About this RNA:
This 75-nucleotide sequence from Chlorobium sp. belongs to the Rfam family "Chlorobi-RRM RNA". Rfam classes the family as a cis-regulatory element. NCBI's taxonomy places the organism under Bacteria, Pseudomonadati, Chlorobiota, Chlorobiales, Chlorobium. The match comes from Rfam's covariance-model search (49 bits).
[Rfam]
RNA sequence: AUUAAGGCUAAAAGUUAGCCUUGAAAGCUUUCAAGUGAUUUGUGCUUUUGGUUAUUUGACAGUUUUUUUUGAUAA
Numbered sequence: 001a002u003u004a005a006g007g008c009u010a011a012a013a014g015u016u017a018g019c020c021u022u023g024a025a026a027g028c029u030u031u032c033a034a035g036u037g038a039u040u041u042g043u044g045c046u047u048u049u050g051g052u053u054a055u056u057u058g059a060c061a062g063u064u065u066u067u068u069u070u071g072a073u074a075a
Stems, first nucleotide, its partner, number of pairs: 003024001005022002008018004026064004031059010